[Rfam]
RNA sequence: CGGUGGUGCAUUGUAGUUGCAUUGCGUUGAAAUAAAACACUUGCAAUGCAUCUUCAGUGCAAGCACUG
Numbered sequence: 001c002g003g004u005g006g007u008g009c010a011u012u013g014u015a016g017u018u019g020c021a022u023u024g025c026g027u028u029g030a031a032a033u034a035a036a037a038c039a040c041u042u043g044c045a046a047u048g049c050a051u052c053u054u055c056a057g058u059g060c061a062a063g064c065a066c067u068g
Base pairs, nucleotide, nucleotide: 001068002067003066004065006064007061008060009059010058011057012056013055015053016052019049021047022046023045024044025043026042
Shown here is a 68-nucleotide RNA from Elysia chlorotica, a member of the family "mir-33 microRNA precursor family". Pairs were carried over by alignment from the consensus structure, which was predicted with PFOLD. For this family Rfam cites "MicroRNA transcriptome in the newborn mouse ovaries determined by massive parallel sequencing" (Ahn et al., Mol Hum Reprod, 2010). Rfam 15.1 lists 1,467 matches to the family in 815 species. Taxonomically the source falls in Elysia (Eukaryota, Metazoa, Protostomia, Sacoglossa).